[Rfam]
RNA sequence: ACGGAGCAAGCCGAAAAUCCUGCAAAAGAGUAGGCG
Numbered sequence: 001a002c003g004g005a006g007c008a009a010g011c012c013g014a015a016a017a018u019c020c021u022g023c024a025a026a027a028g029a030g031u032a033g034g035c036g
Base pairs, nucleotide, nucleotide: 003020004019005018010035011034012033